[Rfam]
RNA sequence: CAGUGAGCUCUACCACCCCGAGUAAGGGGCCACGGCAGCAUCAGGAGGUCUCCCUUUUGGGAGACAAGACAACCCUGUUUAAUAUUUAAACAGCAGUGUUCCCA
Numbered sequence: 001c002a003g004u005g006a007g008c009u010c011u012a013c014c015a016c017c018c019c020g021a022g023u024a025a026g027g028g029g030c031c032a033c034g035g036c037a038g039c040a041u042c043a044g045g046a047g048g049u050c051u052c053c054c055u056u057u058u059g060g061g062a063g064a065c066a067a068g069a070c071a072a073c074c075c076u077g078u079u080u081a082a083u084a085u086u087u088a089a090a091c092a093g094c095a096g097u098g099u100u101c102c103c104a
Base pairs, nucleotide, nucleotide: 003033004032005031008028009027010026011025041069042068048065049064050063051062052061053060054059075093076092077091078090079089080088081087082086
Overview: A member of the RNA family "G-CSF factor stem-loop destabilising element (SLDE)" from Mesocricetus auratus, 104 nucleotides long. The match comes from Rfam's covariance-model search (90 bits). On this family, see Putland et al., Mol Cell Biol 2002: "RNA destabilization by the granulocyte colony-stimulating factor stem-loop destabilizing element involves a single stem-loop that promotes deadenylation". Taxonomically the source falls in Mesocricetus (Eukaryota, Metazoa, Sarcopterygii, Boreoeutheria). The family has 16 seed sequences and 132 matches in Rfam 15.1. About the family: This family represents the granulocyte colony-stimulating factor stem-loop destabilising element (G-CSF SLDE). The family's RNA type in Rfam is cis-regulatory element.